Overview
The record is a 76-nucleotide sequence from Corythaixoides concolor, which matches "Small nucleolar RNA SNORD83" in Rfam. The source organism's lineage runs through Eukaryota, Vertebrata, Euteleostomi, Dipnotetrapodomorpha and Corythaixoides.

Nucleotides: 076
Stems, first nucleotide, its partner, number of pairs: 001075004029039004
Number, partner (000 for none) and nucleotide at each position: 001075g002074c003073c004072a005000a006000a007000u008000g009000a010000u011000g012000u013000g014000a015000c016000g017000u018000g019000g020000a021000u022000g023000a024000c025000a026000u027000u028000a029039g030038c031037g032036c033000u034000c035000u036032g037031u038030g039029c040000a041000a042000a043000g044000a045000u046000g047000a048000c049000c050000u051000u052000c053000a054000u055000c056000u057000a058000u059000c060000a061000c062000c063000c064000u065000g066000u067000a068000c069000u070000g071000a072004u073003g074002g075001c076000u
A search with the family's covariance model found it, with a score of 65 bits. Pairs were carried over by alignment from the consensus structure, which was predicted with PFOLD.